[Rfam]
RNA sequence: UAAAAACACGGGAAUGAAGUUCUCCCAAAGUAUUUACUUAAACCGCAUUUUAUGCUGAUGACUUCUGUGAUUAU
Numbered sequence: 001u002a003a004a005a006a007c008a009c010g011g012g013a014a015u016g017a018a019g020u021u022c023u024c025c026c027a028a029a030g031u032a033u034u035u036a037c038u039u040a041a042a043c044c045g046c047a048u049u050u051u052a053u054g055c056u057g058a059u060g061a062c063u064u065c066u067g068u069g070a071u072u073a074u
Base pairs, nucleotide, nucleotide: 010026011025012024013023016065017064018063019062020061021060045055046054047053
RNA: Fluoride riboswitch aptamer (crcB RNA motif)
Organism: Terrisporobacter othiniensis